[Rfam]
RNA: FMN riboswitch aptamer (RFN element)
Nucleotides: 126
Base pairs, nucleotide, nucleotide: 003124004123005122006121007118008117015027016026017025029106030105031095032094033047034046035045036044042093043092051070052069075091076090077089078088079087097109098108099107
Number, partner (000 for none) and nucleotide at each position: 001000g002000a003124g004123u005122g006121c007118u008117c009000c010000g011000g012000g013000g014000u015027c016026g017025g018000u019000g020000a021000a022000a023000a024000u025017c026016c027015g028000a029106g030105c031095c032094g033047g034046c035045g036044g037000u038000g039000a040000u041000a042093g043092u044036c045035c046034g047033c048000g049000a050000c051070c052069c053000g054000c055000u056000c057000c058000c059000g060000a061000u062000a063000c064000g065000g066000g067000a068000c069052g070051g071000u072000u073000g074000a075091u076090u077089c078088g079087g080000u081000g082000a083000a084000a085000u086000u087079c088078c089077g090076a091075a092043a093042c094032c095031g096000a097109c098108g099107g100000u101000g102000a103000a104000a105030g106029u107099c108098c109097g110000g111000a112000u113000g114000g115000g116000a117008g118007g119000a120000a121006g122005c123004a124003c125000a126000c